[Rfam]
RNA sequence: CCAGUCUAAGCGGGAGAGAUCGCCACCCGGGCGUCCGGGGCUCAGGCGACGCCGAAGGAGCAACCGCCCCGGAAACUCUCAGGCUGAAGGACCGCUUGGUAAGC
Numbered sequence: 001c002c003a004g005u006c007u008a009a010g011c012g013g014g015a016g017a018g019a020u021c022g023c024c025a026c027c028c029g030g031g032c033g034u035c036c037g038g039g040g041c042u043c044a045g046g047c048g049a050c051g052c053c054g055a056a057g058g059a060g061c062a063a064c065c066g067c068c069c070c071g072g073a074a075a076c077u078c079u080c081a082g083g084c085u086g087a088a089g090g091a092c093c094g095c096u097u098g099g100u101a102a103g104c
Stems, first nucleotide, its partner, number of pairs: 006099008020049004051084003054080002058078003064072002
Dot-bracket structure: .....((((((((......((((......................)))).(((((..(((...((.....))...))))).))).......)))))))).....